[Rfam]
Overview: A member of the RNA family "t44 RNA" from Edwardsiella tarda, 104 nucleotides long. The family's RNA type in Rfam is small RNA. About the family: This family consists of a number of bacterial RNA genes of between 135 and 170 bases in length. The t44 gene has been identified in several species of enteric bacteria but homologs have also been identified in Pseudomonas and Coxiella species. The t44 gene is found between the map and rpsB genes in all species in the full alignment apart from Shigella flexneri. The source organism's lineage runs through Bacteria, Pseudomonadota, Gammaproteobacteria, Enterobacterales and Edwardsiella tarda. Rfam's curators put it in the seed alignment.
Nucleotides: 104
Stems, first nucleotide, its partner, number of pairs: 023094008035085004040079004048075007
Number, partner (000 for none) and nucleotide at each position: 001000u002000g003000u004000u005000a006000u007000u008000u009000g010000c011000a012000u013000a014000a015000a016000c017000a018000a019000c020000a021000c022000a023094c024093a025092c026091g027090u028089a029088u030087c031000g032000g033000c034000a035085c036084a037083u038082g039000u040079g041078c042077c043076g044000g045000g046000g047000u048075g049074c050073c051072g052071u053070c054069g055000g056000a057000c058000g059000c060000g061000a062000a063000u064000g065000c066000g067000u068000g069054c070053g071052g072051u073050g074049g075048u076043c077042g078041g079040c080000g081000u082038c083037a084036u085035g086000g087030g088029a089028u090027a091026c092025g093024u094023g095000g096000a097000g098000g099000c100000a101000u102000a103000a104000c